[Rfam]
RNA: DUF805 RNA
Organism: Flavobacterium johnsoniae
RNA sequence: AAUAGGUGGAGCAGAACCCACUAAAAAAAACGAGGCGGAUCCGAAAAGCCAUACGAGUAGGAAACCA
Number, nucleotide and partner (000 for none) at each position: 001a000002a000003u000004a000005g000006g021007u020008g019009g018010a000011g000012c000013a000014g000015a000016a000017c000018c009019c008020a007021c006022u000023a000024a000025a000026a000027a000028a000029a000030a000031c000032g000033a000034g050035g049036c048037g000038g000039a000040u000041c061042c060043g000044a000045a000046a000047a000048g036049c035050c034051a000052u000053a000054c000055g000056a000057g000058u000059a000060g042061g041062a000063a000064a000065c000066c000067a000